RNA: TPP riboswitch aptamer (THI element)
RNA sequence: CAGCGUUUACCGGGGUGUCCUUUCAAAAAAGAAGGUCUGAGAUCAUACCCGUAGAACCUGAUCAGGGUAAUGCCUGCGCAGGGAGCUUAACAGUUUCAAGUU
Numbered sequence: 001c002a003g004c005g006u007u008u009a010c011c012g013g014g015g016u017g018u019c020c021u022u023u024c025a026a027a028a029a030a031g032a033a034g035g036u037c038u039g040a041g042a043u044c045a046u047a048c049c050c051g052u053a054g055a056a057c058c059u060g061a062u063c064a065g066g067g068u069a070a071u072g073c074c075u076g077c078g079c080a081g082g083g084a085g086c087u088u089a090a091c092a093g094u095u096u097c098a099a100g101u102u
Base pairs, nucleotide, nucleotide: 006090007089009087011051012050013049014048016045017037019035020034021033022032023031057082058081059080060079063076064075065074066073